The family of this 100-nucleotide RNA from Fontibacillus phaseoli is "Purine riboswitch aptamer".
The base pairs follow the family's consensus structure, which is taken from published work.
RNA sequence: AAAUAUGUCUUACAGAGUAUUCGUAUAUCCUCGAAAAUACGGUUUGAGGGUCUCUACAAGGAACCACAAAUUCCUGGCUACGAAUGGGUGCUUAUGCAUA
Numbered sequence: 001a002a003a004u005a006u007g008u009c010u011u012a013c014a015g016a017g018u019a020u021u022c023g024u025a026u027a028u029c030c031u032c033g034a035a036a037a038u039a040c041g042g043u044u045u046g047a048g049g050g051u052c053u054c055u056a057c058a059a060g061g062a063a064c065c066a067c068a069a070a071u072u073c074c075u076g077g078c079u080a081c082g083a084a085u086g087g088g089u090g091c092u093u094a095u096g097c098a099u100a
Stems, first nucleotide, its partner, number of pairs: 018086008029049007059075005
Lineage of the source: Bacteria > Bacillati > Bacillota > Caryophanales > Fontibacillus.